RNA: c-di-AMP riboswitch aptamer (ydaO/yuaA leader)
RNA sequence: CACAAUAUAAGGCCGAGUUCCGUAAUGGAAGCGGAGGAACCACUUUUGGGGUUAAUUUUGUCCUUGUGACAAAAGGGAUGUUUUCUCUUGUCAUCCUACCCGUCAGCUAACUUCGCAGGCCAAAGCAAGGGGUCGA
Number, nucleotide and partner (000 for none) at each position: 001c000002a000003c000004a000005a000006u000007a000008u000009a000010a000011g121012g120013c119014c118015g000016a000017g000018u030019u029020c028021c000022g000023u000024a000025a000026u000027g000028g020029a019030a018031g116032c115033g114034g113035a112036g111037g000038a000039a000040c000041c048042a047043c000044u000045u000046u000047u042048g041049g101050g100051g099052u000053u000054a000055a000056u000057u073058u072059u071060g070061u000062c000063c000064u000065u000066g000067u000068g000069a000070c060071a059072a058073a057074a000075g000076g096077g095078a094079u093080g000081u000082u000083u000084u000085c000086u000087c000088u000089u000090g000091u000092c000093a079094u078095c077096c076097u000098a000099c051100c050101c049102g000103u000104c000105a000106g000107c000108u000109a000110a000111c036112u035113u034114c033115g032116c031117a000118g014119g013120c012121c011122a000123a000124a000125g000126c000127a000128a000129g000130g000131g000132g000133u000134c000135g000136a000